Shown here is a 62-nucleotide RNA from Humidesulfovibrio mexicanus, a member of the family "Fluoride riboswitch aptamer (crcB RNA motif)". A search with the family's covariance model found it, with a score of 56 bits. Taxonomically the source falls in Humidesulfovibrio (Bacteria, Pseudomonadati, Desulfovibrionales, Desulfovibrionaceae).
[Rfam]
RNA sequence: AUGACCAGAGGGGAUGGAGUUCCCCUUGAACCGCGACAGACGCUGAUGACUCCUGCUGCCCG
Numbered sequence: 001a002u003g004a005c006c007a008g009a010g011g012g013g014a015u016g017g018a019g020u021u022c023c024c025c026u027u028g029a030a031c032c033g034c035g036a037c038a039g040a041c042g043c044u045g046a047u048g049a050c051u052c053c054u055g056c057u058g059c060c061c062g
Stems, first nucleotide, its partner, number of pairs: 010025004016053006033043003